[Rfam]
RNA sequence: AUAGGCUCGACAAAGUAACCCCGCGCGGGCGAAAUCAAUGCCUUUGCAAAAGGGGUGCGCAACCUUUCCGCAAGGAUAAAUAAAUACCCCGAUGUAGUCGAUCGGACGCUACUUGCAUUGCCGUCUAUUGUGGUAUGGCGGUUUAAUGGUCGGUACUACGGGCAAUCCGAACGCCACAACGAUAAUAAGAUUGUACGGGGUAUCAUAUCGAAAUGAACAGCAA
Numbered sequence: 001a002u003a004g005g006c007u008c009g010a011c012a013a014a015g016u017a018a019c020c021c022c023g024c025g026c027g028g029g030c031g032a033a034a035u036c037a038a039u040g041c042c043u044u045u046g047c048a049a050a051a052g053g054g055g056u057g058c059g060c061a062a063c064c065u066u067u068c069c070g071c072a073a074g075g076a077u078a079a080a081u082a083a084a085u086a087c088c089c090c091g092a093u094g095u096a097g098u099c100g101a102u103c104g105g106a107c108g109c110u111a112c113u114u115g116c117a118u119u120g121c122c123g124u125c126u127a128u129u130g131u132g133g134u135a136u137g138g139c140g141g142u143u144u145a146a147u148g149g150u151c152g153g154u155a156c157u158a159c160g161g162g163c164a165a166u167c168c169g170a171a172c173g174c175c176a177c178a179a180c181g182a183u184a185a186u187a188a189g190a191u192u193g194u195a196c197g198g199g200g201u202a203u204c205a206u207a208u209c210g211a212a213a214u215g216a217a218c219a220g221c222a223a
Stems, first nucleotide, its partner, number of pairs: 004042003019029002067076003084203008093195001094159005099152005108116002120142006162194005169180001